[Rfam]
RNA sequence: AGUGGAUCUGAGUACUGACGGAAGAUAAUGUGGAAGACCACAGGGGAAUCAGAUUUGUAAGAAGCCGACCGUCUGGGCAACAUUU
Numbered sequence: 001a002g003u004g005g006a007u008c009u010g011a012g013u014a015c016u017g018a019c020g021g022a023a024g025a026u027a028a029u030g031u032g033g034a035a036g037a038c039c040a041c042a043g044g045g046g047a048a049u050c051a052g053a054u055u056u057g058u059a060a061g062a063a064g065c066c067g068a069c070c071g072u073c074u075g076g077g078c079a080a081c082a083u084u085u
Stems, first nucleotide, its partner, number of pairs: 003057009015045002017073005030041004064078003
Source information
Rfam assigns this 85-nucleotide sequence from Firmicutes bacterium CAG:646 to the family "ZMP/ZTP riboswitch aptamer (pfl RNA motif)". The base pairs follow the family's consensus structure, which is taken from published work. The literature on the family includes a 2015 paper in Mol Cell by Kim et al., "An ancient riboswitch class in bacteria regulates purine biosynthesis and one-carbon metabolism". Its family is annotated with regulation of purine nucleotide biosynthetic process and one-carbon metabolic process in the Gene Ontology. It scores 57 bits against the family's covariance model.